RNA sequence: CUAUAAAAUCUUACUAAUUGCUGAAACAUCCAAGCCUUUUACAAUAAAUUUGGAUAAUCAGCAGGAAAUCUAUGAAAUAUUUAUAUAUUUUUUGGAAUCUUCAGAGACUAUACGUAAGAAAUAUAUUGUUUAUAUGAGAAGUAUAUUUAAUAAUAUGUUAAGAGAUAGUCCCAUCUUACUUUAAAAAGUAAG
Numbered sequence: 001c002u003a004u005a006a007a008a009u010c011u012u013a014c015u016a017a018u019u020g021c022u023g024a025a026a027c028a029u030c031c032a033a034g035c036c037u038u039u040u041a042c043a044a045u046a047a048a049u050u051u052g053g054a055u056a057a058u059c060a061g062c063a064g065g066a067a068a069u070c071u072a073u074g075a076a077a078u079a080u081u082u083a084u085a086u087a088u089u090u091u092u093u094g095g096a097a098u099c100u101u102c103a104g105a106g107a108c109u110a111u112a113c114g115u116a117a118g119a120a121a122u123a124u125a126u127u128g129u130u131u132a133u134a135u136g137a138g139a140a141g142u143a144u145a146u147u148u149a150a151u152a153a154u155a156u157g158u159u160a161a162g163a164g165a166u167a168g169u170c171c172c173a174u175c176u177u178a179c180u181u182u183a184a185a186a187a188g189u190a191a192g
Stems, first nucleotide, its partner, number of pairs: 009119004014114001019063006029054005064100002069095002072092001076089005104171001106170005122157009177190005
RNA: Group I catalytic intron
Organism: Monosporascus sp. GIB2